[Rfam]
RNA: Small nucleolar RNA R160
Organism: Camellia sinensis
RNA sequence: AGCAAAAUGAUGUUGUUCUUUAGUCUGAAACUCGAGAUGUGGAAAUCAUAUAAACAAUGGUCUUCAAAGUUCUGUGAUUGCU
Dot-bracket structure: (((((........................................................................)))))